[Rfam]
RNA sequence: GAGGGUCGGUCCCUCGAAAUCUGAGUACAGGCUCUGGUUUCAAACCACCACGAGCUGCCAAGUUCAAAAGGCUUGGUGAUGAGCGUCGUUGGAAAAGGCAUACUAGUUAAAAUGUCAGGU
Numbered sequence: 001g002a003g004g005g006u007c008g009g010u011c012c013c014u015c016g017a018a019a020u021c022u023g024a025g026u027a028c029a030g031g032c033u034c035u036g037g038u039u040u041c042a043a044a045c046c047a048c049c050a051c052g053a054g055c056u057g058c059c060a061a062g063u064u065c066a067a068a069a070g071g072c073u074u075g076g077u078g079a080u081g082a083g084c085g086u087c088g089u090u091g092g093a094a095a096a097g098g099c100a101u102a103c104u105a106g107u108u109a110a111a112a113u114g115u116c117a118g119g120u
Stems, first nucleotide, its partner, number of pairs: 001015005016041006023034004046119001048092002050089004054080001057077003061073004097116005

The record is a 120-nucleotide sequence from Sphingobacterium sp. ML3W, which matches "Group II catalytic intron D1-D4-2" in Rfam.
A reference for the family is Lehmann and Schmidt (2003), "Group II introns: structure and catalytic versatility of large natural ribozymes", Crit Rev Biochem Mol Biol.
The match comes from Rfam's covariance-model search (100 bits).
Lineage of the source: Bacteria > Pseudomonadati > Sphingobacteriia > Sphingobacteriaceae > Sphingobacterium.